[Rfam]
RNA sequence: GGAGGUAGGCCCUCCGGAGCCGCCUUGCAGGAGGAGGCCCCAAACCACCGCAUGCUGCGUCGGUUAAGAGCCGGGGUGGUGAGCGAUGCGGAAACGGCGCGGCGGGACCGCGUCAGGU
Numbered sequence: 001g002g003a004g005g006u007a008g009g010c011c012c013u014c015c016g017g018a019g020c021c022g023c024c025u026u027g028c029a030g031g032a033g034g035a036g037g038c039c040c041c042a043a044a045c046c047a048c049c050g051c052a053u054g055c056u057g058c059g060u061c062g063g064u065u066a067a068g069a070g071c072c073g074g075g076g077u078g079g080u081g082a083g084c085g086a087u088g089c090g091g092a093a094a095c096g097g098c099g100c101g102g103c104g105g106g107a108c109c110g111c112g113u114c115a116g117g118u
Base pairs, nucleotide, nucleotide: 001015002014003013004012005011016041017040019038020037021036023034024033025032026031046117048091049090050089051088052087053086054080055079057077058076061073062072063071064070096114097113098112099111100110101109

Description
This 118-nucleotide RNA from Streptosporangium album belongs to the Rfam family "Group II catalytic intron D1-D4-2". About the family: Group II introns are found in rRNA, tRNA and mRNA of organelles in fungi, plants and protists, and also in mRNA in bacteria. Pairs were carried over by alignment from the consensus structure. NCBI's taxonomy places the organism under Bacteria, Bacillati, Actinomycetota, Streptosporangiaceae, Streptosporangium.